[Rfam]
The family of this 84-nucleotide RNA sequence from Myripristis murdjan is "mir-363 microRNA precursor family". Pairs were carried over by alignment from the consensus structure, which was predicted with RNAalifold. For this family Rfam cites "Small RNA expression and strain specificity in the rat" (Linsen et al., BMC Genomics, 2010).
Nucleotides: 084
Base pairs, nucleotide, nucleotide: 009075010074011073012072013071014070015069016068017067019066020065024061025060026059027058028057029056030055031054
Number, partner (000 for none) and nucleotide at each position: 001000g002000c003000u004000g005000u006000u007000u008000u009075c010074g011073g012072g013071u014070g015069g016068a017067u018000g019066a020065c021000u022000u023000a024061g025060c026059a027058a028057u029056u030055u031054u032000a033000a034000u035000a036000c037000u038000a039000a040000a041000c042000a043000a044000a045000a046000u047000c048000u049000a050000a051000a052000c053000c054031a055030a056029a057028a058027u059026u060025g061024c062000a063000c064000a065020g066019u067017a068016u069015c070014c071013a072012u073011c074010u075009g076000u077000a078000a079000u080000c081000c082000g083000c084000c